[Rfam]
RNA sequence: AUCGGAAUAUUCAUAAAAACUCAUAUAAUCAUGGGGAUAUGGCCCAUAAGUUUCUACCGGAUGACCACUGUAAUUGUCCGACUAUGAGUGAAGUAGCGCAUCUA
Numbered sequence: 001a002u003c004g005g006a007a008u009a010u011u012c013a014u015a016a017a018a019a020c021u022c023a024u025a026u027a028a029u030c031a032u033g034g035g036g037a038u039a040u041g042g043c044c045c046a047u048a049a050g051u052u053u054c055u056a057c058c059g060g061a062u063g064a065c066c067a068c069u070g071u072a073a074u075u076g077u078c079c080g081a082c083u084a085u086g087a088g089u090g091a092a093g094u095a096g097c098g099c100a101u102c103u104a
Stems, first nucleotide, its partner, number of pairs: 019089007029049001031047005058080007
RNA: Purine riboswitch aptamer
Organism: Paenibacillus agri